Rfam assigns this 59-nucleotide sequence from Metabacillus arenae to the family "Ribosomal protein L13 leader". The family's consensus secondary structure was predicted with CMfinder. By type it is a cis-regulatory leader. Rfam's curators write: This family is a putative r-protein leader autoregulatory structure found in B. subtilis and other low-GC Gram-positive bacteria. It is located in the 5' untranslated regions of mRNAs encoding the L13-S9 (rplM-rpsI) ribosomal protein operon. On this family, see Zengel and Lindahl, Prog Nucleic Acid Res Mol Biol 1994: "Diverse mechanisms for regulating ribosomal protein synthesis in Escherichia coli". NCBI's taxonomy places the organism under Bacteria, Bacillati, Bacillota, Bacilli, Metabacillus.

[Rfam]
RNA sequence: GGUAUGUUAUUUCAACCCCACGAAUAAGCCCCGGAAACUUAUCGUGUUUUGAACAUAGA
Numbered sequence: 001g002g003u004a005u006g007u008u009a010u011u012u013c014a015a016c017c018c019c020a021c022g023a024a025u026a027a028g029c030c031c032c033g034g035a036a037a038c039u040u041a042u043c044g045u046g047u048u049u050u051g052a053a054c055a056u057a058g059a
Stems, first nucleotide, its partner, number of pairs: 008057003011053004019046005025041004